[Rfam]
RNA: tRNA
Organism: Botryotinia narcissicola
RNA sequence: GCUUCCUUAGCUCAGUGGUAGAGCGGACGAUUGCAGUGGUGUUUCUCGAAAGCGUCUCGCUACUAUCGUCAGGUCAGUCGUUCGAACCGGCUAGGGAGCU
Dot-bracket structure: (((((((..((((.......)))).(((((...................................))))).....(((((.......)))))))))))).